Shown here is a 79-nucleotide sequence from Raphanus sativus, a member of the family "Small nucleolar RNA SNORD18". The literature on the family includes a 2001 paper in EMBO J by Giorgi et al., "Release of U18 snoRNA from its host intron requires interaction of Nop1p with the Rnt1p endonuclease". The family is grouped with related families in Rfam's "SNORD18 clan". It scores 42 bits against the family's covariance model. Pairs were carried over by alignment from the consensus structure, which was predicted with PFOLD. The source organism's lineage runs through Eukaryota, Euphyllophyta, Spermatophyta, Pentapetalae and Raphanus.
[Rfam]
RNA sequence: GAGAUAUGAUGAGCAACUAAAUUGGUCCGUGUUUCUGAUUAACCGUGACCGAAAACUUUCUUAACCAAACUCUGAUCUC
Numbered sequence: 001g002a003g004a005u006a007u008g009a010u011g012a013g014c015a016a017c018u019a020a021a022u023u024g025g026u027c028c029g030u031g032u033u034u035c036u037g038a039u040u041a042a043c044c045g046u047g048a049c050c051g052a053a054a055a056c057u058u059u060c061u062u063a064a065c066c067a068a069a070c071u072c073u074g075a076u077c078u079c
Stems, first nucleotide, its partner, number of pairs: 001079004